The family of this 383-nucleotide part of an RNA from Furfurilactobacillus rossiae is "Bacterial large subunit ribosomal RNA". The organism belongs to Furfurilactobacillus rossiae, within Bacteria.
RNA sequence: GAAAGAUCAGUGAGAAUCUGAUCCACCGAAUGACUAAGGUUUCCUGGGGAAGGCUCGUCCACCCAGGGUUAGUCGGGACCUAAGGCGAGGCCGAAAGGCGUAGUCGAUGGAAAACAGGUUGAGAUUCCUGUACUAGUUAAACUUGUUUGAACAAUGGAGGGACGCAGAAGGCUAAACGAUCCGGACGAUUGGAAAUGUCCGGUCAAGCAGUGAGGUGUGAGAUGAGUUAAAUGCUUGUUUCUUUAACAUUGAGCUGUGACGAGGACCGAAAUUUAAGUAGGGAAGUCGUUGAUGUCACGCUGCCGAGAAAAGCUUCUAGUUAGAGUUUAAUUACCCGUACCGCAGACCGACACAGGUAGUCGAGGAGAGUAUCCUCAGGUGAG
Numbered sequence: 001g002a003a004a005g006a007u008c009a010g011u012g013a014g015a016a017u018c019u020g021a022u023c024c025a026c027c028g029a030a031u032g033a034c035u036a037a038g039g040u041u042u043c044c045u046g047g048g049g050a051a052g053g054c055u056c057g058u059c060c061a062c063c064c065a066g067g068g069u070u071a072g073u074c075g076g077g078a079c080c081u082a083a084g085g086c087g088a089g090g091c092c093g094a095a096a097g098g099c100g101u102a103g104u105c106g107a108u109g110g111a112a113a114a115c116a117g118g119u120u121g122a123g124a125u126u127c128c129u130g131u132a133c134u135a136g137u138u139a140a141a142c143u144u145g146u147u148u149g150a151a152c153a154a155u156g157g158a159g160g161g162a163c164g165c166a167g168a169a170g171g172c173u174a175a176a177c178g179a180u181c182c183g184g185a186c187g188a189u190u191g192g193a194a195a196u197g198u199c200c201g202g203u204c205a206a207g208c209a210g211u212g213a214g215g216u217g218u219g220a221g222a223u224g225a226g227u228u229a230a231a232u233g234c235u236u237g238u239u240u241c242u243u244u245a246a247c248a249u250u251g252a253g254c255u256g257u258g259a260c261g262a263g264g265a266c267c268g269a270a271a272u273u274u275a276a277g278u279a280g281g282g283a284a285g286u287c288g289u290u291g292a293u294g295u296c297a298c299g300c301u302g303c304c305g306a307g308a309a310a311a312g313c314u315u316c317u318a319g320u321u322a323g324a325g326u327u328u329a330a331u332u333a334c335c336c337g338u339a340c341c342g343c344a345g346a347c348c349g350a351c352a353c354a355g356g357u358a359g360u361c362g363a364g365g366a367g368a369g370u371a372u373c374c375u376c377a378g379g380u381g382a383g
Base pairs, nucleotide, nucleotide: 005023006022007021008020009019010018024381025380026379027378032361033360034359035358038341039340043067044066045065046064047063048062052060053059074337075336076335077334079110080109084105085104086103088101090099091098092097114131115130116129117128118127134333135332136331137330138329139328140327141326142325143324144323151320152319156316157315158314159313164303165302166301167300170296171295172294175290176289177288178287179286181202182201183200184199185198186197203262204261207257208256209255210254214250215249216248219240220239221238224235226234227233266281267280269278347356348355363375364374365373366372
The family is grouped with related families in Rfam's "LSU clan".